RNA sequence: AUCGUUUCUUCACCCCAAUGAGGCUUUGCCGAGGUGCGUUUAUUGCUGGUUGAAAACUUUUCCCAAUUGCCCGCGAUGUCCCCUGAAACAUGGGUGACAUACGCAAUUUUUGAACGCCUCUAGGAGG
Numbered sequence: 001a002u003c004g005u006u007u008c009u010u011c012a013c014c015c016c017a018a019u020g021a022g023g024c025u026u027u028g029c030c031g032a033g034g035u036g037c038g039u040u041u042a043u044u045g046c047u048g049g050u051u052g053a054a055a056a057c058u059u060u061u062c063c064c065a066a067u068u069g070c071c072c073g074c075g076a077u078g079u080c081c082c083c084u085g086a087a088a089c090a091u092g093g094g095u096g097a098c099a100u101a102c103g104c105a106a107u108u109u110u111u112g113a114a115c116g117c118c119u120c121u122a123g124g125a126g127g
Stems, first nucleotide, its partner, number of pairs: 008038001010036001012035003022030003073104003076100005082094004117127004
Dot-bracket structure: .......(.(.(((.......(((...)))..)))).)..................................((((((((.((((.....)))).))))).)))............((((...))))

The record is a 127-nucleotide RNA sequence from Caenorhabditis nigoni, which matches "U4 spliceosomal RNA" in Rfam. The match comes from Rfam's covariance-model search (75 bits). By type it is a spliceosomal small nuclear RNA. Lineage of the source: Eukaryota > Chromadorea > Rhabditoidea > Peloderinae > Caenorhabditis. The base pairs follow the family's consensus structure, which is taken from published work.